[Rfam]
RNA sequence: AAAGCAGGUCGCCUUAUCGCGCUUUUUAGUGAGGAAAGUCCGGACACCAAAGCACAGCGUAGCGGGUAACGCCCGUCAUUUGUUUUAAUGACAAAUCGGACAAGUGCAACAGAAAGAAUGUACAGGUUAAGCUGUAGUGAAAUCAGGUAAACUCUACGCGGUGAAAUACCAAGUAAACCAAGGCUCGAGGCUUGUGCGGCCAAUCUUGGAGGGUUGGUAGAUUAGAUUUUAAUAGUAAUAUUAAAACCAGAUAAAUGAUAAGGCGUUAACUGAGGUUAACGACAGAAUCCGGCUUACAGACCUGCUUUUUUA
Numbered sequence: 001a002a003a004g005c006a007g008g009u010c011g012c013c014u015u016a017u018c019g020c021g022c023u024u025u026u027u028a029g030u031g032a033g034g035a036a037a038g039u040c041c042g043g044a045c046a047c048c049a050a051a052g053c054a055c056a057g058c059g060u061a062g063c064g065g066g067u068a069a070c071g072c073c074c075g076u077c078a079u080u081u082g083u084u085u086u087a088a089u090g091a092c093a094a095a096u097c098g099g100a101c102a103a104g105u106g107c108a109a110c111a112g113a114a115a116g117a118a119u120g121u122a123c124a125g126g127u128u129a130a131g132c133u134g135u136a137g138u139g140a141a142a143u144c145a146g147g148u149a150a151a152c153u154c155u156a157c158g159c160g161g162u163g164a165a166a167u168a169c170c171a172a173g174u175a176a177a178c179c180a181a182g183g184c185u186c187g188a189g190g191c192u193u194g195u196g197c198g199g200c201c202a203a204u205c206u207u208g209g210a211g212g213g214u215u216g217g218u219a220g221a222u223u224a225g226a227u228u229u230u231a232a233u234a235g236u237a238a239u240a241u242u243a244a245a246a247c248c249a250g251a252u253a254a255a256u257g258a259u260a261a262g263g264c265g266u267u268a269a270c271u272g273a274g275g276u277u278a279a280c281g282a283c284a285g286a287a288u289c290c291g292g293c294u295u296a297c298a299g300a301c302c303u304g305c306u307u308u309u310u311u312a
Base pairs, nucleotide, nucleotide: 001308002307003306004305005304006303007302008301009300010299011297012263013262014261015260016259017258018257020031021030022029023028036295037294038293040292041291042290043289044288045163046162047161048160052197053196054195055194057159058158059157060156061155062076063075064074065073066072077098078096079095080094081093082092083091084090099154100153104152105151106148107147121136123134124133125132167219168218169217170216178209179208180207181206182205189201190200191199192198227246228245229244230243231242232241233240234239

The record is a 312-nucleotide RNA sequence from Psychroflexus salarius, which matches "Bacterial RNase P class A" in Rfam. Rfam's curators write: Ribonuclease P (RNase P) is a ubiquitous endoribonuclease, found in archaea, bacteria and eukarya as well as chloroplasts and mitochondria. NCBI's taxonomy places the organism under Bacteria, Bacteroidota, Flavobacteriia, Flavobacteriaceae, Psychroflexus.